Shown here is a 100-nucleotide RNA from Litoreibacter arenae, a member of the family "Pyrrolysine insertion sequence mttB". Pairs were carried over by alignment from the consensus structure, which was predicted with CMfinder. Rfam links the family to the GO term pyrrolysine incorporation. On this family, see Theil Have et al., BMC Bioinformatics 2013: "Effects of using coding potential, sequence conservation and mRNA structure conservation for predicting pyrroly-sine containing genes".
RNA sequence: GCGUCGGAUUCCAAACUGCCGGACAUGCAGGCGGGUUGGGAGCAGAUGUGCUCCAACGUCAUGGCAGGGCUGUCGGGGCUGAACAUGGUCUACGAGGCGG
Numbered sequence: 001g002c003g004u005c006g007g008a009u010u011c012c013a014a015a016c017u018g019c020c021g022g023a024c025a026u027g028c029a030g031g032c033g034g035g036u037u038g039g040g041a042g043c044a045g046a047u048g049u050g051c052u053c054c055a056a057c058g059u060c061a062u063g064g065c066a067g068g069g070c071u072g073u074c075g076g077g078g079c080u081g082a083a084c085a086u087g088g089u090c091u092a093c094g095a096g097g098c099g100g
Stems, first nucleotide, its partner, number of pairs: 003012001033062001035060001077098001079096002